[Rfam]
RNA sequence: CACGUGCUCCGGGGUCGGUGUAAGUCCGAACCGGCGGUGAAAGUCCGCGACCCGGCCACCCUCGGGUGGUCGGUUGACCAGGUGCAAUUCCUGGACCGACGGUGAAAGUCCGGAUGGGAGGCGCACGCG
Numbered sequence: 001c002a003c004g005u006g007c008u009c010c011g012g013g014g015u016c017g018g019u020g021u022a023a024g025u026c027c028g029a030a031c032c033g034g035c036g037g038u039g040a041a042a043g044u045c046c047g048c049g050a051c052c053c054g055g056c057c058a059c060c061c062u063c064g065g066g067u068g069g070u071c072g073g074u075u076g077a078c079c080a081g082g083u084g085c086a087a088u089u090c091c092u093g094g095a096c097c098g099a100c101g102g103u104g105a106a107a108g109u110c111c112g113g114a115u116g117g118g119a120g121g122c123g124c125a126c127g128c129g
Base pairs, nucleotide, nucleotide: 003127004126005125006124007123009121010120016028017027018026030109031108032098033097034048035047036046037045043096044095052073053072078094079093080092081091082090100112101111102110
Shown here is a 129-nucleotide RNA from Raineyella antarctica, a member of the family "FMN riboswitch aptamer (RFN element)". The RFN element is a highly conserved domain that is found frequently in the 5'-untranslated regions of prokaryotic mRNAs that encode for flavin mononucleotide (FMN) biosynthesis and transport proteins. The organism belongs to Raineyella, within Bacteria. The match comes from Rfam's covariance-model search (97 bits). Its family is annotated with FMN binding in the Gene Ontology.